This 101-nucleotide sequence from Populus alba belongs to the Rfam family "MIR480 microRNA precursor family". On this family, see Lu et al., Plant Cell 2005: "Novel and mechanical stress-responsive MicroRNAs in Populus trichocarpa that are absent from Arabidopsis". Lineage of the source: Eukaryota > eudicotyledons > Pentapetalae > Salicaceae > Populus. Pairs were carried over by alignment from the consensus structure, which was predicted with WAR.
RNA sequence: UAAUCUGUUUGGAGCAAAUUCUUAUUUAGUUGUGGCAGACUUGAUUGCUAUAAUUCUUCACUACUGUAUGAACAAUAACUUUUUGAGAUUUUAAUUAGAGU
Numbered sequence: 001u002a003a004u005c006u007g008u009u010u011g012g013a014g015c016a017a018a019u020u021c022u023u024a025u026u027u028a029g030u031u032g033u034g035g036c037a038g039a040c041u042u043g044a045u046u047g048c049u050a051u052a053a054u055u056c057u058u059c060a061c062u063a064c065u066g067u068a069u070g071a072a073c074a075a076u077a078a079c080u081u082u083u084u085g086a087g088a089u090u091u092u093a094a095u096u097a098g099a100g101u
Base pairs, nucleotide, nucleotide: 004099005098006097007096008094009093012090015087018084025078027075029073030072031071